The family of this 122-nucleotide sequence is "LOOT RNA".
RNA sequence: AGCCUAAACCAUUGAGAAAUCAGUGGCAUGGUGAAAAAUCCGAUUAAGCUCAACAACCCCUCAGUCUUGGUGCUUAAUCGGUUAUGCAGGGAAACUUGCAUAGACAGUCUUAAUUGACUGUC
Numbered sequence: 001a002g003c004c005u006a007a008a009c010c011a012u013u014g015a016g017a018a019a020u021c022a023g024u025g026g027c028a029u030g031g032u033g034a035a036a037a038a039u040c041c042g043a044u045u046a047a048g049c050u051c052a053a054c055a056a057c058c059c060c061u062c063a064g065u066c067u068u069g070g071u072g073c074u075u076a077a078u079c080g081g082u083u084a085u086g087c088a089g090g091g092a093a094a095c096u097u098g099c100a101u102a103g104a105c106a107g108u109c110u111u112a113a114u115u116g117a118c119u120g121u122c
Base pairs, nucleotide, nucleotide: 002032003031004030009026010025011024012023013022014021015020040081041080042079043078044077045076046075047074048073049072052068053067056065057064083102084101085100086099087098088097089096090095103122104121105120106119107118108117
Dot-bracket structure: .(((....(((((((....)))))))...))).......((((((((((..((..((......)).))...)))))))))).((((((((....))))))))((((((........))))))
The sequence is in the family's curated seed alignment.